The family of this 85-nucleotide RNA from Serilophus lunatus is "Small nucleolar SNORD12/SNORD106". A search with the family's covariance model found it, with a score of 55 bits. The family's consensus secondary structure was predicted with RNAalifold. The literature on the family includes a 2001 paper in EMBO J by Huttenhofer et al., "RNomics: an experimental approach that identifies 201 candidates for novel, small, non-messenger RNAs in mouse". The family has 8 seed sequences and 2,264 matches in Rfam 15.1.

RNA sequence: GCUGGUGCCCGUGAUGACCCUUUCCCCGGCAGACCGACCCUGUUGACCAUCGCUGUCCAAGCCAGGCCGUGUCUGAGGCGCCGGC
Numbered sequence: 001g002c003u004g005g006u007g008c009c010c011g012u013g014a015u016g017a018c019c020c021u022u023u024c025c026c027c028g029g030c031a032g033a034c035c036g037a038c039c040c041u042g043u044u045g046a047c048c049a050u051c052g053c054u055g056u057c058c059a060a061g062c063c064a065g066g067c068c069g070u071g072u073c074u075g076a077g078g079c080g081c082c083g084g085c
Stems, first nucleotide, its partner, number of pairs: 001085009